[Rfam]
RNA: FMN riboswitch aptamer (RFN element)
RNA sequence: AACGCGCUCCGGGGUCAGUGAAAAUCUGAACCGGCGGUAUAGUCCGCGACCCGCACGACGCUCACCGAGGCUCCGGCCCCGAGGCACCGUGCGGUUGAACUGGUGUGAUUCCAGUACCGACGGUGAGAGUCCGGAUAGGAGGAGGCGCGUG
Numbered sequence: 001a002a003c004g005c006g007c008u009c010c011g012g013g014g015u016c017a018g019u020g021a022a023a024a025u026c027u028g029a030a031c032c033g034g035c036g037g038u039a040u041a042g043u044c045c046g047c048g049a050c051c052c053g054c055a056c057g058a059c060g061c062u063c064a065c066c067g068a069g070g071c072u073c074c075g076g077c078c079c080c081g082a083g084g085c086a087c088c089g090u091g092c093g094g095u096u097g098a099a100c101u102g103g104u105g106u107g108a109u110u111c112c113a114g115u116a117c118c119g120a121c122g123g124u125g126a127g128a129g130u131c132c133g134g135a136u137a138g139g140a141g142g143a144g145g146c147g148c149g150u151g
Base pairs, nucleotide, nucleotide: 003149004148005147006146007145008143009142010141016028017027018026030130031129032119033118034047035046036045037044042117043116051094052093053092054091055090056089057088099115100114101113102112103111121133122132123131